[Rfam]
RNA sequence: GGGGUCGACUGGUUUUGACAGCAAGUCGAAUUGAAAAGUAAGCAGGCCGAGCAUUGAGACCUUGCUCGUUAAUAUAAGAUCUCACCAUUUUAAACGGCGAAAAUAACUACGCUUUAGCUGCAUAAUCCGAAUUAUAGUACGAUUACGCCACGUUCCUAUCAGAUAGGAAAGCUGGAUUCUCCUUGAAAGCCUUGGUUUGUGGCGUUCUAUUCAGGAGAACCGUAAAAAUAAACCUAGAUUUCCAUGAGCUUCGGGUGGAUUUCAAAAUUAAGAAGAUAAGUAAUAAGUGGCUGUUUCUGGCCUAGCUUGUUAUCGAAAAUCCAAUCAGGAAAUAAGCCCGUAGAAAGCCUUUUAGUUGCUUGUUUGGACCCGAGUUCGAUUCUCGGCGACUCCACAA
Dot-bracket structure: (((((((...........((((((((...(((((((.((...(.((((((((..[[[[[.[..))))).........].]]]]]...................................((.(((((.............))))).))............................((((((..(((.((.(..[.[[..))).)))......))))))...........]].]..(((((.(...[.[[[[..).)))))..........]]]].]..((((((((((((..[[[..[)))..)))))))))...........]...]]]....))).)......)).))))))).)))))).))...(((((.......))))))))))))....
RNA: transfer-messenger RNA
Organism: Flavobacterium faecale